[Rfam]
RNA: Small nucleolar RNA SNORA24
Organism: Microtus ochrogaster
RNA sequence: CUGCAUUCACUUUGGGACCUGUCAGCUGUGGUGUGUUCUCUUCCUUGCCAUGGAAGAGCUUUUUACUAUUGGAAAAGCUGUUAACCUUUACGUUAUAACAGAUUAGGACUUGCACAAGUAGCAUUC
Numbered sequence: 001c002u003g004c005a006u007u008c009a010c011u012u013u014g015g016g017a018c019c020u021g022u023c024a025g026c027u028g029u030g031g032u033g034u035g036u037u038c039u040c041u042u043c044c045u046u047g048c049c050a051u052g053g054a055a056g057a058g059c060u061u062u063u064u065a066c067u068a069u070u071g072g073a074a075a076a077g078c079u080g081u082u083a084a085c086c087u088u089u090a091c092g093u094u095a096u097a098a099c100a101g102a103u104u105a106g107g108a109c110u111u112g113c114a115c116a117a118g119u120a121g122c123a124u125u126c
Stems, first nucleotide, its partner, number of pairs: 002054001004052003014040004020033004064123001066121002069117003072113001074111002078101003083096001